Notes:
Rfam assigns this 183-nucleotide RNA from Salvelinus namaycush to the family "Small nucleolar RNA SNORA53". Pairs were carried over by alignment from the consensus structure, which was predicted with RNAalifold. Its family is annotated with nucleolus and RNA processing in the Gene Ontology.
[Rfam]
RNA sequence: AACACGCUCCUUAGAUCCAACUCUGGAGGGUGCUCCUGUGUGCUGGUGCUGUUGUCUCUCUGAGUGCUGCAGCUCCAGCCUGGAGGCCCUCAGCAGCUUUCUGGCUGUACAAUUGGAGGUGCUUGAGUCAUUGGUGUGUGAGAGCAGUCUACCUGUCCCCCAGCCAGGCUGGGGGUGGUUAAC
Numbered sequence: 001a002a003c004a005c006g007c008u009c010c011u012u013a014g015a016u017c018c019a020a021c022u023c024u025g026g027a028g029g030g031u032g033c034u035c036c037u038g039u040g041u042g043c044u045g046g047u048g049c050u051g052u053u054g055u056c057u058c059u060c061u062g063a064g065u066g067c068u069g070c071a072g073c074u075c076c077a078g079c080c081u082g083g084a085g086g087c088c089c090u091c092a093g094c095a096g097c098u099u100u101c102u103g104g105c106u107g108u109a110c111a112a113u114u115g116g117a118g119g120u121g122c123u124u125g126a127g128u129c130a131u132u133g134g135u136g137u138g139u140g141a142g143a144g145c146a147g148u149c150u151a152c153c154u155g156u157c158c159c160c161c162a163g164c165c166a167g168g169c170u171g172g173g174g175g176u177g178g179u180u181a182a183c
Base pairs, nucleotide, nucleotide: 002139003138004137005136006135007134008133010127011126012125013124014123018121019120021118022117023116024115025114028090029089030088036085037084039082042079043078044077045076046075048073049072050071051070054067056066058064059063093108094107095106096105097104098103153178154177155176156175157174160172162170163169164168
Rfam describes the family as follows. The snoRNA ACA53 belongs to the H/ACA family of pseudouridylation guide snoRNAs.